[Rfam]
RNA sequence: UAGCCUGUUAAAGCUGCAGUGCUUUAAGAGGCUAACCCAGAAUGAAGGGUAUAAUAAUUCUCCAUUAAACCCAAAUCAGAGAUUUAAAACUCUUUUUUGGAUCCUGUCUGGAGUUACAGUU
Numbered sequence: 001u002a003g004c005c006u007g008u009u010a011a012a013g014c015u016g017c018a019g020u021g022c023u024u025u026a027a028g029a030g031g032c033u034a035a036c037c038c039a040g041a042a043u044g045a046a047g048g049g050u051a052u053a054a055u056a057a058u059u060c061u062c063c064a065u066u067a068a069a070c071c072c073a074a075a076u077c078a079g080a081g082a083u084u085u086a087a088a089a090c091u092c093u094u095u096u097u098u099g100g101a102u103c104c105u106g107u108c109u110g111g112a113g114u115u116a117c118a119g120u121u
Base pairs, nucleotide, nucleotide: 003050004049005048006047008045009044010043014040015039016038021032060113061112062111063110064109071100072099073098074097075096079092080091081090083089084088

Annotation: This 121-nucleotide RNA from Monodelphis domestica belongs to the Rfam family "Small nucleolar RNA SNORA26". A reference for the family is Huttenhofer et al. (2001), "RNomics: an experimental approach that identifies 201 candidates for novel, small, non-messenger RNAs in mouse", EMBO J. From the family's description: The snoRNA HBI-6 belong to the H/ACA family of snoRNAs, guiding the pseudouridylation of position U4522 if the 28S rRNA. HBI-6 is the human orthologue of mouse MBI-6 snoRNA. Rfam classes the family as an H/ACA-box small nucleolar RNA. Taxonomically the source falls in Monodelphis (Eukaryota, Gnathostomata, Teleostomi, Didelphimorphia).